Annotation: This 333-nucleotide RNA from Gopherus evgoodei belongs to the Rfam family "Nuclear RNase P". The match comes from Rfam's covariance-model search (84 bits). The base pairs follow the family's consensus structure, which is taken from published work. Gene Ontology terms of the family: ribonuclease P activity, ribonuclease P complex and tRNA processing. It is annotated as a ribozyme.

[Rfam]
RNA sequence: UAAGCACAGGACUUCAGUCUCCAGAGCGGUCAAGUUACAUGCUGGGUGCUUGUCACCCAUUCCUAAUAGCCUUGGGGAAGGUCUGAGACAAGAACCAAUCAGUGUCCUUGUAGGGCAUCACCUGAGACAAGUGUCCGAGUUUCCAGCCAGGCUGGGCCCUGAGUUGAGGGGGUAGGCAGAAGAGGUGAGCAGGGGGUCUCCUCCUUGGGCAGAUGGCAAUUCCCUGGCCCAGUGAUUGGGACAGACCCAAGCCAGAAGCUCUUGAGUUCUAUGGGCUGAGGUGAGGCCAGUGCCCCAAACAGACCUCAGAACCCAGUUCAGAUAUCUGUCUUG
Numbered sequence: 001u002a003a004g005c006a007c008a009g010g011a012c013u014u015c016a017g018u019c020u021c022c023a024g025a026g027c028g029g030u031c032a033a034g035u036u037a038c039a040u041g042c043u044g045g046g047u048g049c050u051u052g053u054c055a056c057c058c059a060u061u062c063c064u065a066a067u068a069g070c071c072u073u074g075g076g077g078a079a080g081g082u083c084u085g086a087g088a089c090a091a092g093a094a095c096c097a098a099u100c101a102g103u104g105u106c107c108u109u110g111u112a113g114g115g116c117a118u119c120a121c122c123u124g125a126g127a128c129a130a131g132u133g134u135c136c137g138a139g140u141u142u143c144c145a146g147c148c149a150g151g152c153u154g155g156g157c158c159c160u161g162a163g164u165u166g167a168g169g170g171g172g173u174a175g176g177c178a179g180a181a182g183a184g185g186u187g188a189g190c191a192g193g194g195g196g197u198c199u200c201c202u203c204c205u206u207g208g209g210c211a212g213a214u215g216g217c218a219a220u221u222c223c224c225u226g227g228c229c230c231a232g233u234g235a236u237u238g239g240g241a242c243a244g245a246c247c248c249a250a251g252c253c254a255g256a257a258g259c260u261c262u263u264g265a266g267u268u269c270u271a272u273g274g275g276c277u278g279a280g281g282u283g284a285g286g287c288c289a290g291u292g293c294c295c296c297a298a299a300c301a302g303a304c305c306u307c308a309g310a311a312c313c314c315a316g317u318u319c320a321g322a323u324a325u326c327u328g329u330c331u332u333g
Stems, first nucleotide, its partner, number of pairs: 001333004008327003013280004018274002031074004044058005083321005095251001103117005119133003123129001137248001139246003156233001282308005